The family of this 73-nucleotide RNA is "RAGATH-18 RNA". The base pairs follow the family's consensus structure, which is taken from published work.
RNA sequence: GCUAUGGAGUAUGAUACCAAACGCUAGUAGCCUGCGAGAAGUCGCGGCGAGAGCGCAUACGAGGAAAUAGCAA
Numbered sequence: 001g002c003u004a005u006g007g008a009g010u011a012u013g014a015u016a017c018c019a020a021a022c023g024c025u026a027g028u029a030g031c032c033u034g035c036g037a038g039a040a041g042u043c044g045c046g047g048c049g050a051g052a053g054c055g056c057a058u059a060c061g062a063g064g065a066a067a068u069a070g071c072a073a
Stems, first nucleotide, its partner, number of pairs: 001071005009060005022055003030048003035044002
It is annotated as a small RNA.